Notes: A member of the RNA family "Small nucleolar RNA SNORD24" from Scyliorhinus torazame, 72 nucleotides long. Rfam links the family to the GO terms RNA processing and nucleolus. NCBI's taxonomy places the organism under Eukaryota, Deuterostomia, Elasmobranchii, Galeomorphii, Scyliorhinus. The match comes from Rfam's covariance-model search (71 bits). It is annotated as a C/D-box small nucleolar RNA.
RNA sequence: UGCAGAUGAUGUAACUGAAUAUUUGCUAUCUGAGAAUAACGGAUGACAUUACCCACCAAGAUCGCUGAUGCA
Numbered sequence: 001u002g003c004a005g006a007u008g009a010u011g012u013a014a015c016u017g018a019a020u021a022u023u024u025g026c027u028a029u030c031u032g033a034g035a036a037u038a039a040c041g042g043a044u045g046a047c048a049u050u051a052c053c054c055a056c057c058a059a060g061a062u063c064g065c066u067g068a069u070g071c072a
Stems, first nucleotide, its partner, number of pairs: 001072004

For this family Rfam cites "U24, a novel intron-encoded small nucleolar RNA with two 12 nt long, phylogenetically conserved complementarities to 28S rRNA" (Qu et al., Nucleic Acids Res, 1995).